The family of this 68-nucleotide sequence is "S15-Flavobacteria ribosomal protein leader". For this family Rfam cites "Discovery of 20 novel ribosomal leader candidates in bacteria and archaea" (Eckert and Weinberg, BMC Microbiol, 2020). Rfam's curators put it in the seed alignment.
RNA sequence: UAUCUUUGCCGCCUGAUUACCAAAGCGGUAAUUCUAUACAUAAAAAUCAUUUAAAUAAUAUUGGCAUG
Numbered sequence: 001u002a003u004c005u006u007u008g009c010c011g012c013c014u015g016a017u018u019a020c021c022a023a024a025g026c027g028g029u030a031a032u033u034c035u036a037u038a039c040a041u042a043a044a045a046a047u048c049a050u051u052u053a054a055a056u057a058a059u060a061u062u063g064g065c066a067u068g
Base pairs, nucleotide, nucleotide: 015033016032017031018030019029020028